[Rfam]
RNA sequence: UCGAACGAUAGAGGCGCGGGUACGAUGGGUCUUGGGGAAGUCGGCGGGCAUUGAUCCCAAAGCGAGGCAAACCCGCCGAAUUCGCCUUGCCGGGCGCGGCGCGCGAAUGGGUUUGCGGGAAACACUCGCAAGACUGUCUGCGAAAUCGCAGGUGCGCUAUCUUGCUG
Numbered sequence: 001u002c003g004a005a006c007g008a009u010a011g012a013g014g015c016g017c018g019g020g021u022a023c024g025a026u027g028g029g030u031c032u033u034g035g036g037g038a039a040g041u042c043g044g045c046g047g048g049c050a051u052u053g054a055u056c057c058c059a060a061a062g063c064g065a066g067g068c069a070a071a072c073c074c075g076c077c078g079a080a081u082u083c084g085c086c087u088u089g090c091c092g093g094g095c096g097c098g099g100c101g102c103g104c105g106a107a108u109g110g111g112u113u114u115g116c117g118g119g120a121a122a123c124a125c126u127c128g129c130a131a132g133a134c135u136g137u138c139u140g141c142g143a144a145a146u147c148g149c150a151g152g153u154g155c156g157c158u159a160u161c162u163u164g165c166u167g
Base pairs, nucleotide, nucleotide: 007161008160009159010158011157016076017075018074019073020072021071024068032061033060035058036057037056038055080108081107082106083105084104085103088101089100090099091098092097109135110134112132113131114130115129116128117127118126119125137152138151139150140149141148142147
Shown here is a 167-nucleotide RNA from Slackia isoflavoniconvertens, a member of the family "Lysine riboswitch aptamer". The match comes from Rfam's covariance-model search (73 bits).